A member of the RNA family "c-di-GMP-I riboswitch aptamer" from Cohnella xylanilytica, 86 nucleotides long.
The family is grouped with related families in Rfam's "c-di-GMP_I riboswitch clan".
NCBI's taxonomy places the organism under Bacteria, Bacilli, Caryophanales, Paenibacillaceae, Cohnella.
It scores 64 bits against the family's covariance model.
Gene Ontology term of the family: cyclic-di-GMP binding.

RNA sequence: ACAGGAAAAAGGCAAACCAGUGCGAAAGACUGUGACGCAAAGCCACGGGUCUUCCGCAUGCUUGCAAUGAUCGCCGGGUUACCCUC
Numbered sequence: 001a002c003a004g005g006a007a008a009a010a011g012g013c014a015a016a017c018c019a020g021u022g023c024g025a026a027a028g029a030c031u032g033u034g035a036c037g038c039a040a041a042g043c044c045a046c047g048g049g050u051c052u053u054c055c056g057c058a059u060g061c062u063u064g065c066a067a068u069g070a071u072c073g074c075c076g077g078g079u080u081a082c083c084c085u086c
Stems, first nucleotide, its partner, number of pairs: 012038002018032004023028001041080004046076003049071003056065003